This 97-nucleotide RNA belongs to the Rfam family "pemK RNA".
Nucleotides: 097
Base pairs, nucleotide, nucleotide: 012094013061014060015059016058062080063079064078066076067075068074081093082092083091
Number, partner (000 for none) and nucleotide at each position: 001000a002000u003000a004000a005000u006000g007000a008000a009000a010000c011000u012094u013061c014060c015059g016058u017000a018000c019000a020000g021000u022000c023000a024000c025000a026000g027000c028000g029000c030000c031000c032000c033000u034000u035000g036000a037000c038000c039000g040000g041000g042000g043000a044000a045000u046000c047000a048000a049000g050000c051000a052000a053000u054000g055000a056000g057000g058016g059015c060014g061013g062080c063079u064078c065000u066076g067075u068074g069000a070000g071000a072000a073000c074068c075067a076066c077000a078064g079063a080062g081093g082092g083091a084000u085000g086000a087000g088000a089000u090000u091083u092082c093081c094012a095000u096000g097000a